Rfam assigns this 128-nucleotide sequence from Galemys pyrenaicus to the family "Small nucleolar RNA SNORA33".

RNA sequence: AAACCAAUCAGUGAAUAGGCUUACUUGGAUUUGUUUGCAGAAAUUCAGAAAAGGGUGGCAAUAGCACAGCUGUGUUACAAAUCUUAAAGACAUUGAGGUCAUUAAGGGCCCUUACAGUGGCAACAAGA
Number, nucleotide and partner (000 for none) at each position: 001a000002a000003a000004c058005c057006a056007a000008u000009c000010a000011g000012u000013g000014a000015a000016u041017a000018g000019g038020c037021u000022u000023a000024c000025u000026u000027g000028g000029a000030u000031u000032u000033g000034u000035u000036u000037g020038c019039a000040g000041a016042a000043a000044u000045u000046c000047a000048g000049a000050a000051a000052a000053g000054g000055g000056u006057g005058g004059c000060a000061a000062u000063a000064g000065c000066a000067c000068a000069g121070c120071u119072g118073u000074g000075u000076u000077a000078c000079a000080a000081a000082u107083c106084u105085u104086a103087a102088a000089g100090a099091c098092a000093u000094u000095g000096a000097g000098g091099u090100c089101a000102u087103u086104a085105a084106g083107g082108g000109c000110c000111c000112u000113u000114a000115c000116a000117g000118u072119g071120g070121c069122a000123a000124c000125a000126a000127g000128a000
Source information:
The base pairs follow the family's consensus structure, which was predicted with PFOLD. Gene Ontology terms of the family: nucleolus and RNA processing.